[Rfam]
RNA sequence: ACACAAGAAGGGAGGUGGUCCGCGAAAUUGAUAGCUUCAUGGACAUGUGAGGUGGCUGCGAGCUAGCUGCAUUGGCUCGGCAGAUUCUUCGACCAUCGCGCUGGCGAAUCUCCCGUAGCCACCCGGCCCCCGAGCUUCCGGUCCGUCCAACCGGAAUAUGGCUCGGGGGCCGCUCCAU
Numbered sequence: 001a002c003a004c005a006a007g008a009a010g011g012g013a014g015g016u017g018g019u020c021c022g023c024g025a026a027a028u029u030g031a032u033a034g035c036u037u038c039a040u041g042g043a044c045a046u047g048u049g050a051g052g053u054g055g056c057u058g059c060g061a062g063c064u065a066g067c068u069g070c071a072u073u074g075g076c077u078c079g080g081c082a083g084a085u086u087c088u089u090c091g092a093c094c095a096u097c098g099c100g101c102u103g104g105c106g107a108a109u110c111u112c113c114c115g116u117a118g119c120c121a122c123c124c125g126g127c128c129c130c131c132g133a134g135c136u137u138c139c140g141g142u143c144c145g146u147c148c149a150a151c152c153g154g155a156a157u158a159u160g161g162c163u164c165g166g167g168g169g170c171c172g173c174u175c176c177a178u
Stems, first nucleotide, its partner, number of pairs: 015059005062105006069099002074094002124172013137155006
RNA: Actinobacteria sRNA Ms_IGR-5